The record is a 99-nucleotide RNA from Porphyromonas levii, which matches "TPP riboswitch aptamer (THI element)" in Rfam. The base pairs follow the family's consensus structure, which is taken from published work.

RNA sequence: GAUCCAGUGAAGGGGUGCCACUAUUAGUAGUGUGCUGAGAAGAUACCCUUAGAACCUGAUGCAGGUAAUGCUGCCGUAGGAAUAAGAGUUACGCGUUAU
Number, nucleotide and partner (000 for none) at each position: 001g000002a000003u000004c000005c000006a000007g000008u085009g000010a083011a049012g048013g047014g046015g000016u043017g035018c034019c032020a031021c030022u000023a000024u000025u000026a000027g000028u000029a000030g021031u020032g019033u000034g018035c017036u000037g000038a000039g000040a000041a000042g000043a016044u000045a000046c014047c013048c012049u011050u000051a000052g000053a000054a000055c080056c079057u078058g077059a000060u000061g074062c073063a072064g071065g000066u000067a000068a000069u000070g000071c064072u063073g062074c061075c000076g000077u058078a057079g056080g055081a000082a000083u010084a000085a008086g000087a000088g000089u000090u000091a000092c000093g000094c000095g000096u000097u000098a000099u000